[Rfam]
Nucleotides: 102
Base pairs, nucleotide, nucleotide: 018088019087020086021085022084023083024082025081030048031047032046033045034044035043058078059077060076061075062074063073064072
Number, partner (000 for none) and nucleotide at each position: 001000u002000u003000a004000u005000a006000a007000a008000u009000u010000g011000a012000a013000u014000c015000a016000u017000g018088u019087c020086g021085u022084c023083g024082u025081a026000u027000a028000u029000a030048u031047u032046u033045g034044g035043g036000a037000a038000u039000a040000a041000g042000g043035c044034c045033c046032g047031a048030a049000c050000g051000u052000c053000u054000c055000u056000a057000c058078c059077g060076g061075a062074u063073c064072a065000c066000c067000g068000u069000a070000a071000a072064u073063g074062a075061u076060c077059u078058g079000a080000c081025u082024a083023c084022g085021a086020u087019g088018a089000g090000u091000a092000a093000a094000g095000c096000a097000u098000a099000c100000c101000g102000a